[Rfam]
RNA sequence: AUUAAUAACCUGGGUCGAGAACCCAAAAUAUUGAA
Numbered sequence: 001a002u003u004a005a006u007a008a009c010c011u012g013g014g015u016c017g018a019g020a021a022c023c024c025a026a027a028a029u030a031u032u033g034a035a
Base pairs, nucleotide, nucleotide: 002034003033004032005031006030011025012024013023014022015021
S16-Flavobacteria ribosomal protein leader: a 35-nucleotide RNA sequence. Rfam's curators put it in the seed alignment. By type it is a cis-regulatory leader.